Source information
This 178-nucleotide RNA sequence from Jatropha curcas belongs to the Rfam family "MIR168 microRNA precursor family". NCBI's taxonomy places the organism under Eukaryota, Embryophyta, Mesangiospermae, Crotonoideae, Jatropha. The literature on the family includes a 2005 paper in Plant Cell by Lu et al., "Novel and mechanical stress-responsive MicroRNAs in Populus trichocarpa that are absent from Arabidopsis". A search with the family's covariance model found it, with a score of 111 bits. Its family is annotated with miRNA-mediated post-transcriptional gene silencing and RISC complex in the Gene Ontology.
[Rfam]
RNA sequence: UUACCGGCGGUCUCUAAUUCGCUUGGUGCAGGUCGGGAACUGAUUGGCUUCGCUUGUAUGUACUUGUGUGUACAGUAUGUACUUAAUCAAUGCCAGAUGGCGAGAUGUGAUUAGUUGAGAUGAAUGGAAGCGAAUUGGAUCCCGCCUUGCAUCAACUGAAUCGGAGACCGCGGUGAAG
Numbered sequence: 001u002u003a004c005c006g007g008c009g010g011u012c013u014c015u016a017a018u019u020c021g022c023u024u025g026g027u028g029c030a031g032g033u034c035g036g037g038a039a040c041u042g043a044u045u046g047g048c049u050u051c052g053c054u055u056g057u058a059u060g061u062a063c064u065u066g067u068g069u070g071u072a073c074a075g076u077a078u079g080u081a082c083u084u085a086a087u088c089a090a091u092g093c094c095a096g097a098u099g100g101c102g103a104g105a106u107g108u109g110a111u112u113a114g115u116u117g118a119g120a121u122g123a124a125u126g127g128a129a130g131c132g133a134a135u136u137g138g139a140u141c142c143c144g145c146c147u148u149g150c151a152u153c154a155a156c157u158g159a160a161u162c163g164g165a166g167a168c169c170g171c172g173g174u175g176a177a178g
Base pairs, nucleotide, nucleotide: 013165014164017161018160019159020158023155024154025153026152027151028150029149030148031147032146034144035143036142037141038140040138041137042136043135044134045133